[Rfam]
RNA sequence: GGCUUCAACAUCCCCGCAGGCUGGGCGUGAUUGAAGGUUCUGUAGAGACGUAACUUGUUACGUCUUUCUGGCCCGACGAGAGCGCAGUGAGUCUGCUGGAGCC
Numbered sequence: 001g002g003c004u005u006c007a008a009c010a011u012c013c014c015c016g017c018a019g020g021c022u023g024g025g026c027g028u029g030a031u032u033g034a035a036g037g038u039u040c041u042g043u044a045g046a047g048a049c050g051u052a053a054c055u056u057g058u059u060a061c062g063u064c065u066u067u068c069u070g071g072c073c074c075g076a077c078g079a080g081a082g083c084g085c086a087g088u089g090a091g092u093c094u095g096c097u098g099g100a101g102c103c
Stems, first nucleotide, its partner, number of pairs: 001103007013089001014087001016096007023088001025085004031079002
This 103-nucleotide RNA belongs to the Rfam family "nadA riboswitch".
On this family, see Huang et al., RNA 2020: "Structure and ligand binding of the ADP-binding domain of the NAD(+) riboswitch".
Pairs were carried over by alignment from the consensus structure, which is taken from published work.
The family's RNA type in Rfam is small RNA.